[Rfam]
RNA sequence: GUUUCCGAGGAGCGUUGCGAGGGGUCCCGAUCAUCCGGGGGCCCGCCAGGCUCGGAACGACGGCGCCACACUCCGCGGGCCGUUCAACAACGACGCUCACCGUCC
Numbered sequence: 001g002u003u004u005c006c007g008a009g010g011a012g013c014g015u016u017g018c019g020a021g022g023g024g025u026c027c028c029g030a031u032c033a034u035c036c037g038g039g040g041g042c043c044c045g046c047c048a049g050g051c052u053c054g055g056a057a058c059g060a061c062g063g064c065g066c067c068a069c070a071c072u073c074c075g076c077g078g079g080c081c082g083u084u085c086a087a088c089a090a091c092g093a094c095g096c097u098c099a100c101c102g103u104c105c
Stems, first nucleotide, its partner, number of pairs: 003057006022044007